[Rfam]
RNA sequence: GCGGGGUAAACCCGCGGGAUGUUCCCGAGUUGGGAGAACCACAAA
Numbered sequence: 001g002c003g004g005g006g007u008a009a010a011c012c013c014g015c016g017g018g019a020u021g022u023u024c025c026c027g028a029g030u031u032g033g034g035a036g037a038a039c040c041a042c043a044a045a
Stems, first nucleotide, its partner, number of pairs: 001015005016040002023035004

About this RNA
This 45-nucleotide RNA from Pyrococcus sp. ST04 belongs to the Rfam family "eL15-Euryarchaeota ribosomal protein leader". By type it is a cis-regulatory leader. For this family Rfam cites "Discovery of 20 novel ribosomal leader candidates in bacteria and archaea" (Eckert and Weinberg, BMC Microbiol, 2020). The source organism's lineage runs through Archaea, Methanobacteriati, Methanobacteriota, Thermococci and Pyrococcus. The sequence is in the family's curated seed alignment.